Shown here is a 119-nucleotide RNA from Jaculus jaculus, a member of the family "Small nucleolar RNA SNORA31". The base pairs follow the family's consensus structure, which was predicted with RNAalifold.
[Rfam]
Nucleotides: 119
Stems, first nucleotide, its partner, number of pairs: 002050004007045002011040002014038006063111006074099004079093003083089001
Number, partner (000 for none) and nucleotide at each position: 001000c002050u003049g004048c005047a006000c007045c008044c009000a010000c011040u012039g013000a014038u015037a016036a017035a018034c019033c020000g021000u022000a023000u024000g025000g026000u027000u028000c029000u030000u031000u032000u033019g034018g035017u036016u037015u038014g039012c040011a041000c042000u043000a044008g045007g046000a047005u048004g049003c050002a051000a052000a053000a054000a055000g056000u057000c058000c059000a060000g061000g062000a063111u064110c065109c066108c067107u068106g069000u070000g071000a072000u073000u074099u075098c076097u077096g078000c079093c080092u081091g082000c083089c084000u085000u086000u087000g088000u089083g090000a091081c092080a093079g094000c095000c096077c097076a098075g099074a100000u101000u102000g103000a104000a105000u106068u107067g108066g109065g110064g111063a112000g113000c114000a115000c116000a117000c118000c119000c
Its family is annotated with RNA processing and nucleolus in the Gene Ontology. From the family's description: ACA31 (SNORA31) belongs to the H/ACA class of snoRNAs which are thought to guide the sites of modification of uridines to pseudouridines. On this family, see Huttenhofer et al., EMBO J 2001: "RNomics: an experimental approach that identifies 201 candidates for novel, small, non-messenger RNAs in mouse".